[Rfam]
RNA sequence: CUCUGUGAUCUUCCACAGCUUUCUUGAACUGCAUCCGCAGGAGGAGAGGAGCUUGACUUCUGCAGUUCAAUAAAGCUGUGGGAAACUGCAGGGA
Numbered sequence: 001c002u003c004u005g006u007g008a009u010c011u012u013c014c015a016c017a018g019c020u021u022u023c024u025u026g027a028a029c030u031g032c033a034u035c036c037g038c039a040g041g042a043g044g045a046g047a048g049g050a051g052c053u054u055g056a057c058u059u060c061u062g063c064a065g066u067u068c069a070a071u072a073a074a075g076c077u078g079u080g081g082g083a084a085a086c087u088g089c090a091g092g093g094a
Stems, first nucleotide, its partner, number of pairs: 003091005013081003017077006024070004029065005